[Rfam]
Notes:
The record is a 79-nucleotide sequence from Takifugu flavidus, which matches "mir-19 microRNA precursor family" in Rfam. On this family, see Lagos-Quintana et al., Science 2001: "Identification of novel genes coding for small expressed RNAs". The base pairs follow the family's consensus structure, which was predicted with RNAalifold. Rfam 15.1 lists 2,337 matches to the family in 651 species. Clan: mir-19 clan.
RNA sequence: GUCCCUGGUUAGUUUUGCUGGUUUGCUUUCAGCUUUUCUCUCUACUGCUGUGCAAAUCCAUGCAAAACUGAUCAUGGAG
Numbered sequence: 001g002u003c004c005c006u007g008g009u010u011a012g013u014u015u016u017g018c019u020g021g022u023u024u025g026c027u028u029u030c031a032g033c034u035u036u037u038c039u040c041u042c043u044a045c046u047g048c049u050g051u052g053c054a055a056a057u058c059c060a061u062g063c064a065a066a067a068c069u070g071a072u073c074a075u076g077g078a079g
Stems, first nucleotide, its partner, number of pairs: 003077002006074013020059002022056005028050001031049003